[Rfam]
Nucleotides: 093
Base pairs, nucleotide, nucleotide: 001093002092003091004090005089006088007087008085011026012025013024014023015022016021027045029043030042031041032040047067048066049065050064051063070084071083072082073081
Number, partner (000 for none) and nucleotide at each position: 001093g002092g003091g004090a005089g006088u007087g008085g009000c010000a011026g012025g013024g014023g015022c016021c017000c018000g019000g020000u021016g022015g023014c024013c025012c026011u027045c028000c029043c030042g031041g032040u033000c034000u035000u036000c037000a038000a039000a040032a041031c042030c043029g044000u045027g046000g047067c048066g049065g050064g051063g052000c053000g054000g055000c056000g057000u058000g059000c060000c061000c062000g063051u064050c065049c066048c067047g068000g069000g070084u071083g072082g073081g074000u075000u076000c077000g078000a079000c080000u081073c082072c083071c084070a085008u086000a087007c088006a089005c090004u091003c092002c093001c
A member of the RNA family "Selenocysteine transfer RNA" from bacterium HR24, 93 nucleotides long.
Rfam links the family to the GO term triplet codon-amino acid adaptor activity.
The match comes from Rfam's covariance-model search (75 bits).